[Rfam]
RNA sequence: UAAUGUGUUGUGACAAUACAAUUUGUGGACUAGAGUUUCUGAUCUGGGAAUCUUUCCCCAGAAUCUGAUUAUCAAACCUUUGGUUGUCCGAGCACAUAG
Numbered sequence: 001u002a003a004u005g006u007g008u009u010g011u012g013a014c015a016a017u018a019c020a021a022u023u024u025g026u027g028g029a030c031u032a033g034a035g036u037u038u039c040u041g042a043u044c045u046g047g048g049a050a051u052c053u054u055u056c057c058c059c060a061g062a063a064u065c066u067g068a069u070u071a072u073c074a075a076a077c078c079u080u081u082g083g084u085u086g087u088c089c090g091a092g093c094a095c096a097u098a099g
Stems, first nucleotide, its partner, number of pairs: 001099001003097006038068002043063001044061005